[Rfam]
RNA: MIR473 microRNA precursor family
Organism: Citrus unshiu
Nucleotides: 089
Base pairs, nucleotide, nucleotide: 006085008083009082010081011080012079013078014077015076017075018074019073020072021071022070023069024068025067026066
Number, partner (000 for none) and nucleotide at each position: 001000a002000u003000u004000g005000c006085u007000c008083a009082c010081u011080c012079u013078c014077c015076c016000u017075c018074a019073a020072g021071g022070g023069c024068u025067u026066c027000u028000g029000a030000a031000c032000u033000g034000g035000c036000c037000u038000u039000g040000u041000u042000c043000a044000c045000c046000u047000u048000c049000a050000a051000u052000u053000a054000a055000a056000g057000g058000c059000c060000u061000a062000g063000a064000c065000u066026g067025a068024g069023g070022u071021u072020c073019u074018u075017g076015g077014g078013g079012a080011g081010a082009g083008u084000a085006g086000a087000u088000a089000a